[Rfam]
RNA sequence: CCGGCGAAACCCGAAAAGCCGAUCAAAGAGUAGGGG
Numbered sequence: 001c002c003g004g005c006g007a008a009a010c011c012c013g014a015a016a017a018g019c020c021g022a023u024c025a026a027a028g029a030g031u032a033g034g035g036g
Stems, first nucleotide, its partner, number of pairs: 002021004010035003
Record summary: A member of the RNA family "DUF805b RNA" from Flavobacterium humi, 36 nucleotides long. The source organism's lineage runs through Bacteria, Pseudomonadati, Bacteroidota, Flavobacteriaceae and Flavobacterium. By type it is a cis-regulatory element. Clan: DUF805 clan. It scores 41 bits against the family's covariance model.